[Rfam]
RNA sequence: GAACAUGAUGAAAAGGUUUUACUACUGACCUUUAUAACUAUGUAGUUUUCUACAUUUGAUCUGAGCUCA
Numbered sequence: 001g002a003a004c005a006u007g008a009u010g011a012a013a014a015g016g017u018u019u020u021a022c023u024a025c026u027g028a029c030c031u032u033u034a035u036a037a038c039u040a041u042g043u044a045g046u047u048u049u050c051u052a053c054a055u056u057u058g059a060u061c062u063g064a065g066c067u068c069a
Stems, first nucleotide, its partner, number of pairs: 001068002004065001012033007